[Rfam]
RNA sequence: ACGGAGGAAGCCGAAAAUCUGAUCAAGAGUAGGCA
Numbered sequence: 001a002c003g004g005a006g007g008a009a010g011c012c013g014a015a016a017a018u019c020u021g022a023u024c025a026a027g028a029g030u031a032g033g034c035a
Base pairs, nucleotide, nucleotide: 002021003020004019005018010034011033012032
This 35-nucleotide sequence belongs to the Rfam family "DUF805b RNA".
The family's consensus secondary structure is taken from published work.